[Rfam]
RNA: ylbH leader
RNA sequence: AACAAAAAUCGGGCGCCCCUUUCGGGACGCCCUUUUCAUGGGAGAGGAGAAACCGGACGAAGAACUUAUGGGGAAACGUAAGUCUUCUCCGCGG
Dot-bracket structure: ..........(((((.(((....))).)))))(((....)))...........((((.((((.(((((..........)))))))))))))...